Shown here is a 183-nucleotide sequence, a member of the family "Lysine riboswitch aptamer".

RNA sequence: CUCGAAGGUAGAGGCCGCGGUAAUCAAAAGUAAACUAUGGGAAAUAAAGUGGUAUUCAUGAUCAUAGGUUGAAAGGGGUUAUCGCCGAAAUAUAUGAAUGACCACUUCAUUCAUAUAUUGGGACUGCAUUGAAUAAAUGUAGUACUGUCAUAAGUAUUUUGCUUAUGGAGAGCUAUUAGGAGA
Numbered sequence: 001c002u003c004g005a006a007g008g009u010a011g012a013g014g015c016c017g018c019g020g021u022a023a024u025c026a027a028a029a030g031u032a033a034a035c036u037a038u039g040g041g042a043a044a045u046a047a048a049g050u051g052g053u054a055u056u057c058a059u060g061a062u063c064a065u066a067g068g069u070u071g072a073a074a075g076g077g078g079u080u081a082u083c084g085c086c087g088a089a090a091u092a093u094a095u096g097a098a099u100g101a102c103c104a105c106u107u108c109a110u111u112c113a114u115a116u117a118u119u120g121g122g123a124c125u126g127c128a129u130u131g132a133a134u135a136a137a138u139g140u141a142g143u144a145c146u147g148u149c150a151u152a153a154g155u156a157u158u159u160u161g162c163u164u165a166u167g168g169a170g171a172g173c174u175a176u177u178a179g180g181a182g183a
Stems, first nucleotide, its partner, number of pairs: 007177005017085009033070002035067006089119012120146002123143008148168007